[Rfam]
RNA sequence: UAGCGAGGUAUAGAGUUCCUACGUGUGUUGUUAUAGUAGGAACUUCAUACCGUGCUCU
Numbered sequence: 001u002a003g004c005g006a007g008g009u010a011u012a013g014a015g016u017u018c019c020u021a022c023g024u025g026u027g028u029u030g031u032u033a034u035a036g037u038a039g040g041a042a043c044u045u046c047a048u049a050c051c052g053u054g055c056u057c058u
Stems, first nucleotide, its partner, number of pairs: 002056004007051005013045010